[Rfam]
RNA sequence: CUCCUCGAAAUGCAUUUAGGUGCAGCCUCAGGUGUUCAUUAAUGGAGGUAGUGCACUGGAUAGACUAGGUGGGAGAGAUCCUGUCAACUCUAACCAAACAUCGAAUGCCAUUAAUCAAAGCCUGGGAGUGAGACUAUGGGGGCUAAGCUCCGUAGUCAAAAGGGAAACAGCCCAGACCAUCAGCUAAGGUCCCUAAGCGCAGGCUAAGUGGGAAAGGAAGUAGCAUUGCCUAGACAUCCAGUAGGUUGGCUUAGAAGCAGCCAUCCUUUAAAGAGUGCGUAAUAGCUCACUGGUUGAGUGGUGUUGCGCCGACAAUCCAACGGGGCUUAAGCCUGUCACCGAAGCUAUGGAUCUACCUAUAUGGUAGAUGGUAGAGGAGCGUUCCCUCGGCAGUGAAGCAGGAGUGUAAACAACUGUGGAGCUUAGGGAAGUGAGAAU
Numbered sequence: 001c002u003c004c005u006c007g008a009a010a011u012g013c014a015u016u017u018a019g020g021u022g023c024a025g026c027c028u029c030a031g032g033u034g035u036u037c038a039u040u041a042a043u044g045g046a047g048g049u050a051g052u053g054c055a056c057u058g059g060a061u062a063g064a065c066u067a068g069g070u071g072g073g074a075g076a077g078a079u080c081c082u083g084u085c086a087a088c089u090c091u092a093a094c095c096a097a098a099c100a101u102c103g104a105a106u107g108c109c110a111u112u113a114a115u116c117a118a119a120g121c122c123u124g125g126g127a128g129u130g131a132g133a134c135u136a137u138g139g140g141g142g143c144u145a146a147g148c149u150c151c152g153u154a155g156u157c158a159a160a161a162g163g164g165a166a167a168c169a170g171c172c173c174a175g176a177c178c179a180u181c182a183g184c185u186a187a188g189g190u191c192c193c194u195a196a197g198c199g200c201a202g203g204c205u206a207a208g209u210g211g212g213a214a215a216g217g218a219a220g221u222a223g224c225a226u227u228g229c230c231u232a233g234a235c236a237u238c239c240a241g242u243a244g245g246u247u248g249g250c251u252u253a254g255a256a257g258c259a260g261c262c263a264u265c266c267u268u269u270a271a272a273g274a275g276u277g278c279g280u281a282a283u284a285g286c287u288c289a290c291u292g293g294u295u296g297a298g299u300g301g302u303g304u305u306g307c308g309c310c311g312a313c314a315a316u317c318c319a320a321c322g323g324g325g326c327u328u329a330a331g332c333c334u335g336u337c338a339c340c341g342a343a344g345c346u347a348u349g350g351a352u353c354u355a356c357c358u359a360u361a362u363g364g365u366a367g368a369u370g371g372u373a374g375a376g377g378a379g380c381g382u383u384c385c386c387u388c389g390g391c392a393g394u395g396a397a398g399c400a401g402g403a404g405u406g407u408a409a410a411c412a413a414c415u416g417u418g419g420a421g422c423u424u425a426g427g428g429a430a431g432u433g434a435g436a437a438u
Stems, first nucleotide, its partner, number of pairs: 001379006011024005026128001027126007036119001038115008051102001052100002057096003061092004068085007132157010162173003177350004182346003188340003197337001199336006216310002220307010238293004243267003248262003268272001273288001277286002351369007380433001382430006389423003398417004404411002
Overview:
A member of the RNA family "Bacterial large subunit ribosomal RNA" from Dehalococcoides mccartyi, 438 nucleotides of a longer RNA. Pairs were carried over by alignment from the consensus structure, which is taken from published work. Taxonomically the source falls in Dehalococcoides mccartyi (Bacteria, Bacillati, Chloroflexota, Dehalococcoides). It is one of the family's seed sequences.